[Rfam]
RNA sequence: CUAGGAGGAGAGGGUCCUGGAGAAGCGUGGACCGGUCCGGGUGGGUUCCGGCAGGUUCUCACCCUCUCUAGGCCCCAUUCUCCUCU
Numbered sequence: 001c002u003a004g005g006a007g008g009a010g011a012g013g014g015u016c017c018u019g020g021a022g023a024a025g026c027g028u029g030g031a032c033c034g035g036u037c038c039g040g041g042u043g044g045g046u047u048c049c050g051g052c053a054g055g056u057u058c059u060c061a062c063c064c065u066c067u068c069u070a071g072g073c074c075c076c077a078u079u080c081u082c083c084u085c086u
Stems, first nucleotide, its partner, number of pairs: 003084007012075003016072008025062001027060001029058005037051005

Shown here is an 86-nucleotide RNA from Homo sapiens, a member of the family "mir-657 microRNA precursor family". Taxonomically the source falls in Homo (Eukaryota, Bilateria, Eutheria, Hominoidea). Rfam links the family to the GO terms miRNA-mediated post-transcriptional gene silencing and RISC complex. Rfam's curators put it in the seed alignment.